[Rfam]
RNA sequence: GUAGGGAUGAUGAAACAAAUCAGACGGAUUCCCAAUGAUUUCAAUCCAUGAUAACGACAACCAGCUACUUCUGACCUUU
Numbered sequence: 001g002u003a004g005g006g007a008u009g010a011u012g013a014a015a016c017a018a019a020u021c022a023g024a025c026g027g028a029u030u031c032c033c034a035a036u037g038a039u040u041u042c043a044a045u046c047c048a049u050g051a052u053a054a055c056g057a058c059a060a061c062c063a064g065c066u067a068c069u070u071c072u073g074a075c076c077u078u079u
Base pairs, nucleotide, nucleotide: 001079003077004076005075
Annotation:
Small nucleolar RNA R12: a 79-nucleotide RNA sequence from Sesamum indicum. The literature on the family includes a 2003 paper in Nucleic Acids Res by Chen et al., "The high diversity of snoRNAs in plants: identification and comparative study of 120 snoRNA genes from Oryza sativa". snoR12 is a C/D box small nucleolar RNA, which acts as a methylation guide for 25S ribosomal RNA in plants. snoR12 has been alternatively named snoZ44 in Arabidopsis and snoZ131 in rice. The base pairs follow the family's consensus structure, which was predicted with PFOLD.